[Rfam]
The family of this 157-nucleotide RNA from Burkholderia plantarii is "FMN riboswitch aptamer (RFN element)". The source organism's lineage runs through Bacteria, Pseudomonadati, Betaproteobacteria, Burkholderiales and Burkholderia. Gene Ontology term of the family: FMN binding.

RNA sequence: GAACGUUCUCAGGGCGGGGCGAAAUUCCCCACCGGCGGUAAUCGUGCCUCGUGCAUGUAGCCCGCGAACAGCUCGCGUCAGGUACACCUGCGCGAUGCCUGCCGACCCGGUGGGAUUCCGGGGCCGACGGUCAUAGUCCGGAUGAGAGAGAGCGGGG
Numbered sequence: 001g002a003a004c005g006u007u008c009u010c011a012g013g014g015c016g017g018g019g020c021g022a023a024a025u026u027c028c029c030c031a032c033c034g035g036c037g038g039u040a041a042u043c044g045u046g047c048c049u050c051g052u053g054c055a056u057g058u059a060g061c062c063c064g065c066g067a068a069c070a071g072c073u074c075g076c077g078u079c080a081g082g083u084a085c086a087c088c089u090g091c092g093c094g095a096u097g098c099c100u101g102c103c104g105a106c107c108c109g110g111u112g113g114g115a116u117u118c119c120g121g122g123g124c125c126g127a128c129g130g131u132c133a134u135a136g137u138c139c140g141g142a143u144g145a146g147a148g149a150g151a152g153c154g155g156g157g
Base pairs, nucleotide, nucleotide: 004154005153006152007151008150009149010148017029018028019027031137032136033126034125035065036064037063038062060124061123069101070100106122107121108120109119110118128140129139130138
Dot-bracket structure: ...(((((((......(((.......))).[[((((((.....................[[))))...((.............................))....(((((.......)))))]])).(((.....]]))).......)))))))...